[Rfam]
Background:
The record is a 103-nucleotide sequence from Priestia koreensis, which matches "SAM riboswitch aptamer (S box leader)" in Rfam. Gene Ontology term of the family: regulation of gene expression. A search with the family's covariance model found it, with a score of 70 bits.
RNA sequence: AAGUUAUCAAGAGUGAAUGAGAGAACUGGCUCUAUGACUUCACAGCAACCUGCCAACAGCAAGGUGCUCCAACCAGCAAAGCAAUUGCUUUGGAUGAUAAGAC
Numbered sequence: 001a002a003g004u005u006a007u008c009a010a011g012a013g014u015g016a017a018u019g020a021g022a023g024a025a026c027u028g029g030c031u032c033u034a035u036g037a038c039u040u041c042a043c044a045g046c047a048a049c050c051u052g053c054c055a056a057c058a059g060c061a062a063g064g065u066g067c068u069c070c071a072a073c074c075a076g077c078a079a080a081g082c083a084a085u086u087g088c089u090u091u092g093g094a095u096g097a098u099a100a101g102a103c
Base pairs, nucleotide, nucleotide: 004100005099006098007097008096013043014042015041016040017039021032022031023030026076027075028074029073044068045067046066047065049064050063051061052060053059072095077092078091079090080089081088082087
Pairs were carried over by alignment from the consensus structure, which is taken from published work.